[Rfam]
RNA sequence: UGAUGCCAGGGUCAAAAGUUACUAAGCCCACCAUGAGCUUGCUCAUAGGUGGGUGAAAGACCUUAGGACCCGCCCCGACUAUGAGCAUAAAAGUAGGGAUGAUAAUCCCACGAUAUGCGAAGAUUGGGUAGGAUUGUUGGAGUGCGUAGCACGGAGCAAUCCGUAGGCAUCA
Numbered sequence: 001u002g003a004u005g006c007c008a009g010g011g012u013c014a015a016a017a018g019u020u021a022c023u024a025a026g027c028c029c030a031c032c033a034u035g036a037g038c039u040u041g042c043u044c045a046u047a048g049g050u051g052g053g054u055g056a057a058a059g060a061c062c063u064u065a066g067g068a069c070c071c072g073c074c075c076c077g078a079c080u081a082u083g084a085g086c087a088u089a090a091a092a093g094u095a096g097g098g099a100u101g102a103u104a105a106u107c108c109c110a111c112g113a114u115a116u117g118c119g120a121a122g123a124u125u126g127g128g129u130a131g132g133a134u135u136g137u138u139g140g141a142g143u144g145c146g147u148a149g150c151a152c153g154g155a156g157c158a159a160u161c162c163g164u165a166g167g168c169a170u171c172a
Base pairs, nucleotide, nucleotide: 001172002171003170004169005168006167007166010070011069012068013067017063018062020060023057026054027053028052029051030050031049032048033046034045035044036043037042074128075127076126077125078124079122080121085118086117087116088115096109097108099106100105131162132161133160134159135158136157137156142152143151144150145149
Dot-bracket structure: (((((((..((((...((.(..(..((((((((((((....))))).)))))))..)..).))...))))...(((((((....((((.......((.((....)).)).....))))..)).)))))..(((((((....((((...))))...)))))))...)))))))
The family of this 172-nucleotide RNA sequence from [Ruminococcus] lactaris is "Clostridiales-1 RNA". NCBI's taxonomy places the organism under Bacteria, Bacillati, Lachnospirales, Lachnospiraceae, [Ruminococcus] lactaris. By type it is a small RNA.